The family of this 88-nucleotide RNA is "GA-cis RNA".
RNA sequence: CAAGGGAGGAACCAAUAUGACGAAGUCAUAUUAUAAAGAUGGUUCCGACGACCUGCCGCCGAGCGGAAGCGAGGGGGCAACACAUAUU
Numbered sequence: 001c002a003a004g005g006g007a008g009g010a011a012c013c014a015a016u017a018u019g020a021c022g023a024a025g026u027c028a029u030a031u032u033a034u035a036a037a038g039a040u041g042g043u044u045c046c047g048a049c050g051a052c053c054u055g056c057c058g059c060c061g062a063g064c065g066g067a068a069g070c071g072a073g074g075g076g077g078c079a080a081c082a083c084a085u086a087u088u
Stems, first nucleotide, its partner, number of pairs: 008046006015031006055078003059074002063070002
It is annotated as a small RNA. Pairs were carried over by alignment from the consensus structure, which is taken from published work.